[Rfam]
RNA sequence: UGAUGACCGUUCCUCCUGUUGUCUUUAGGUAUGGCACUAGGAUUUUAGGUCAUCAUACAUUAAAAUUGAUUUUUUUCACUCAGAGAAAAUUAAGAUAUUGGGAUUAUCUAUGUUUUCUCUGAAAUUUGCGGGAUCAAACAAUC
Numbered sequence: 001u002g003a004u005g006a007c008c009g010u011u012c013c014u015c016c017u018g019u020u021g022u023c024u025u026u027a028g029g030u031a032u033g034g035c036a037c038u039a040g041g042a043u044u045u046u047a048g049g050u051c052a053u054c055a056u057a058c059a060u061u062a063a064a065a066u067u068g069a070u071u072u073u074u075u076u077c078a079c080u081c082a083g084a085g086a087a088a089a090u091u092a093a094g095a096u097a098u099u100g101g102g103a104u105u106a107u108c109u110a111u112g113u114u115u116u117c118u119c120u121g122a123a124a125u126u127u128g129c130g131g132g133a134u135c136a137a138a139c140a141a142u143c
Stems, first nucleotide, its partner, number of pairs: 001055008014042005020036004068135006080122010093109005
The record is a 143-nucleotide sequence from Microtus ochrogaster, which matches "Small nucleolar RNA SNORA79" in Rfam. The family's consensus secondary structure was predicted with RNAalifold. The organism belongs to Microtus, within Eukaryota. Gene Ontology terms of the family: nucleolus and RNA processing. A reference for the family is Schattner et al. (2006), "A computational screen for mammalian pseudouridylation guide H/ACA RNAs", RNA. By type it is an H/ACA-box small nucleolar RNA. From the family's description: ACA65 (SNORA79) is a member of the H/ACA class of snoRNAs that guide the sites of modification of uridines to pseudouridines. This snoRNA was identified by computational screening and its expression in mouse experimentally verified by Northern blot and primer extension analysis.